[Rfam]
RNA sequence: GGCAUUGUUCGGUAGGUAAGGCUACUGCAGGGAUAUGGGCUGUUGCCGCGAAAUGGUGGAGACACCAUGAGCUGGUUUGAACAGGGUACAUCGAAAGCAAGGUGUAUCAUAAUACAGUUUCACCGCCCUGCAAAGUUAAAGCUCAGACGAAUGAAGAGAAGU
Numbered sequence: 001g002g003c004a005u006u007g008u009u010c011g012g013u014a015g016g017u018a019a020g021g022c023u024a025c026u027g028c029a030g031g032g033a034u035a036u037g038g039g040c041u042g043u044u045g046c047c048g049c050g051a052a053a054u055g056g057u058g059g060a061g062a063c064a065c066c067a068u069g070a071g072c073u074g075g076u077u078u079g080a081a082c083a084g085g086g087u088a089c090a091u092c093g094a095a096a097g098c099a100a101g102g103u104g105u106a107u108c109a110u111a112a113u114a115c116a117g118u119u120u121c122a123c124c125g126c127c128c129u130g131c132a133a134a135g136u137u138a139a140a141g142c143u144c145a146g147a148c149g150a151a152u153g154a155a156g157a158g159a160a161g162u
Stems, first nucleotide, its partner, number of pairs: 005158002008155003011148001013100001015143003020137003026132007039118005045077001046075002048072002055066004085108003090103003
Overview: Shown here is a 162-nucleotide RNA sequence from Lachnoclostridium sp. An196, a member of the family "M-box riboswitch aptamer (ykoK leader)". The source organism's lineage runs through Bacteria, Bacillati, Bacillota, Lachnospiraceae and Lachnoclostridium. Rfam describes the family as follows. M-box riboswitch, also know as ykoK leader is described as a metaloregulatory RNA that sense divalent metals and function as a genetic control element of genes related to divalent metal transport in bacteria. It was first reported upstream of the B.subtilis ykoK gene and genes with related functions in other bacteria. The family has 159 seed sequences and 1,095 matches in Rfam 15.1. The literature on the family includes a 2007 paper in Cell by Dann CE 3rd et al., "Structure and mechanism of a metal-sensing regulatory RNA". Pairs were carried over by alignment from the consensus structure.